Notes:
Flavo-1 RNA: a 144-nucleotide RNA sequence from Mariniflexile fucanivorans. The organism belongs to Mariniflexile, within Bacteria. It is annotated as a small RNA. The match comes from Rfam's covariance-model search (54 bits).
RNA sequence: GAUUUGCGUUAGGGAUUGCAGCGGCAUCCUUUUGUUUUUAAUGAGGUGAAAUUACCUUUGAAAUAAACUCUUGCUUUGAUAGUGGAUUCCUGCUUUCGCAGGAAUGACAAAAAACAAAAGAUAUAGCGAAAAGCCCGACCUGGU
Numbered sequence: 001g002a003u004u005u006g007c008g009u010u011a012g013g014g015a016u017u018g019c020a021g022c023g024g025c026a027u028c029c030u031u032u033u034g035u036u037u038u039u040a041a042u043g044a045g046g047u048g049a050a051a052u053u054a055c056c057u058u059u060g061a062a063a064u065a066a067a068c069u070c071u072u073g074c075u076u077u078g079a080u081a082g083u084g085g086a087u088u089c090c091u092g093c094u095u096u097c098g099c100a101g102g103a104a105u106g107a108c109a110a111a112a113a114a115c116a117a118a119a120g121a122u123a124u125a126g127c128g129a130a131a132a133g134c135c136c137g138a139c140c141u142g143g144u
Base pairs, nucleotide, nucleotide: 012136013135014134016132017131021127022126026122027121028120032117033116034115035114036113037112038111039110